[Rfam]
RNA: Bacterial RNase P class A
RNA sequence: CAUGAACCCCGGGCGAUUGCGGCCGCCGGAACACCCCACCCGUCGCGGUGGGGCCGCCGGCAGUCGAGGAAAGUCCGGACUCCACAUGCGUGACGGUGGUUGCUAACGGCAACCCAGGGCAACCUGCGGGACAGUGCCACAGAAAACAGACCGCCUGCCACGGCAGGUCAGGGUGAAAAGGUGCGGUAAGAGCGCACCAGCGGCCCAGGUGACUGGGCCGGCUAGGUAAACCCCACCGGGAGCAAUGCCAAGCCGCGACACCACCAGUGGUGUUUCGGGCACGUAGAUCCCUCCACCCCUCGUAAUGAGGGGCAGGGAUGCUGGGCACGCGCCAGUGUCAACGUGCGGGUAGGCAGCUUGAGGGCACCAGCAAUGGUGACCCCAGAUGGAUGAUCGCCCCCGCAGUAGCGGGACAGAAUCCGGCUUAUAGGGGAUCUGCAGU
Numbered sequence: 001c002a003u004g005a006a007c008c009c010c011g012g013g014c015g016a017u018u019g020c021g022g023c024c025g026c027c028g029g030a031a032c033a034c035c036c037c038a039c040c041c042g043u044c045g046c047g048g049u050g051g052g053g054c055c056g057c058c059g060g061c062a063g064u065c066g067a068g069g070a071a072a073g074u075c076c077g078g079a080c081u082c083c084a085c086a087u088g089c090g091u092g093a094c095g096g097u098g099g100u101u102g103c104u105a106a107c108g109g110c111a112a113c114c115c116a117g118g119g120c121a122a123c124c125u126g127c128g129g130g131a132c133a134g135u136g137c138c139a140c141a142g143a144a145a146a147c148a149g150a151c152c153g154c155c156u157g158c159c160a161c162g163g164c165a166g167g168u169c170a171g172g173g174u175g176a177a178a179a180g181g182u183g184c185g186g187u188a189a190g191a192g193c194g195c196a197c198c199a200g201c202g203g204c205c206c207a208g209g210u211g212a213c214u215g216g217g218c219c220g221g222c223u224a225g226g227u228a229a230a231c232c233c234c235a236c237c238g239g240g241a242g243c244a245a246u247g248c249c250a251a252g253c254c255g256c257g258a259c260a261c262c263a264c265c266a267g268u269g270g271u272g273u274u275u276c277g278g279g280c281a282c283g284u285a286g287a288u289c290c291c292u293c294c295a296c297c298c299c300u301c302g303u304a305a306u307g308a309g310g311g312g313c314a315g316g317g318a319u320g321c322u323g324g325g326c327a328c329g330c331g332c333c334a335g336u337g338u339c340a341a342c343g344u345g346c347g348g349g350u351a352g353g354c355a356g357c358u359u360g361a362g363g364g365c366a367c368c369a370g371c372a373a374u375g376g377u378g379a380c381c382c383c384a385g386a387u388g389g390a391u392g393a394u395c396g397c398c399c400c401c402g403c404a405g406u407a408g409c410g411g412g413a414c415a416g417a418a419u420c421c422g423g424c425u426u427a428u429a430g431g432g433g434a435u436c437u438g439c440a441g442u
Stems, first nucleotide, its partner, number of pairs: 001438002004436002007433004011428001012398007020066004025061004071426003075423005080242004090332003094238005099113005114128001115126004129233002134231002136227003151172002153168006180198006200222001201220008246355004279346006324339005362381002365378005